This 79-nucleotide RNA from Myotis davidii belongs to the Rfam family "mir-9198 microRNA precursor family".
The organism belongs to Myotis, within Eukaryota.
It scores 94 bits against the family's covariance model.
The base pairs follow the family's consensus structure, which was predicted with RNAalifold.
RNA sequence: GCUGCCGCUUGCACCCGCUGCUGGUGCCCGGUGCCAGUCCCAAUCGCUUGGCACCAUCAGCGGGUGUGAGCGGCGGCUG
Numbered sequence: 001g002c003u004g005c006c007g008c009u010u011g012c013a014c015c016c017g018c019u020g021c022u023g024g025u026g027c028c029c030g031g032u033g034c035c036a037g038u039c040c041c042a043a044u045c046g047c048u049u050g051g052c053a054c055c056a057u058c059a060g061c062g063g064g065u066g067u068g069a070g071c072g073g074c075g076g077c078u079g
Stems, first nucleotide, its partner, number of pairs: 004074017022056007